[Rfam]
RNA sequence: AAAGUGGUAAAAACCACUUUAAUUAAUUAAUUAAUUAAUUAAAGUGGUUUUUACCA
Numbered sequence: 001a002a003a004g005u006g007g008u009a010a011a012a013a014c015c016a017c018u019u020u021a022a023u024u025a026a027u028u029a030a031u032u033a034a035u036u037a038a039u040u041a042a043a044g045u046g047g048u049u050u051u052u053a054c055c056a
Stems, first nucleotide, its partner, number of pairs: 007054019
Plastid-ccsA-ndhD-1 3UTR RNA: a 56-nucleotide RNA from Macaca nemestrina.
The match comes from Rfam's covariance-model search (50 bits).
Rfam describes the family as follows. Plastid-ccsA-ndhD-1 is a non-coding RNA (ncRNA) recognised in plastids. It was found in the three prime untranslated region (3UTR) of ccsA and ndhD genes, its 3UTR location suggests a role in transcript maturation.
The source organism's lineage runs through Eukaryota, Eumetazoa, Craniata, Catarrhini and Macaca.